Rfam assigns this 126-nucleotide RNA from Owenia fusiformis to the family "Small Cajal body specific RNA 8". The base pairs follow the family's consensus structure, which is taken from published work. Rfam classes the family as a small Cajal body RNA. It scores 81 bits against the family's covariance model. NCBI's taxonomy places the organism under Eukaryota, Opisthokonta, Sedentaria, Oweniida, Owenia. scaRNAs are a specific class of small nuclear RNAs which localise to the Cajal bodies and guide the modification of RNA polymerase II transcribed spliceosomal RNAs U1, U2, U4, U5 and U12. U92 belong to the H/ACA box class of guide RNAs as it has the predicted hairpin-hinge-hairpin-tail structure, conserved H/ACA-box motifs and is found associated with GAR1. Its family is annotated with Cajal body, nucleolus and RNA processing in the Gene Ontology.
[Rfam]
RNA sequence: UGGGGGCCUGAUACCUAGUAGGUAUGGAACACCACCUACUGGCACAAGUGCCCCCUAUAUUAAGAUGCUCUCUGAUGACGGCAGUGCAUUUAGUUCACACUGUCGACAGAUACGGGGCAGACAAAU
Dot-bracket structure: .((((((.......((((...((..........))...)))).......))))))..........((((((.......(((..(((...........)))..)))........)))))).......